[Rfam]
A member of the RNA family "Small nucleolar RNA SNORD115" from Enhydra lutris, 81 nucleotides long. Gene Ontology terms of the family: nucleolus and RNA processing. It is annotated as a C/D-box small nucleolar RNA. Pairs were carried over by alignment from the consensus structure, which was predicted with PFOLD.
RNA sequence: GGGUACCAUGAUUUGAGUGAAUUAUGAUGUCUUGGGGAGAUAUGAUAACAUAAAAAUCAUGCUAGCAUUACAUAGGGGCCC
Numbered sequence: 001g002g003g004u005a006c007c008a009u010g011a012u013u014u015g016a017g018u019g020a021a022u023u024a025u026g027a028u029g030u031c032u033u034g035g036g037g038a039g040a041u042a043u044g045a046u047a048a049c050a051u052a053a054a055a056a057u058c059a060u061g062c063u064a065g066c067a068u069u070a071c072a073u074a075g076g077g078g079c080c081c
Stems, first nucleotide, its partner, number of pairs: 001081004006075001009072002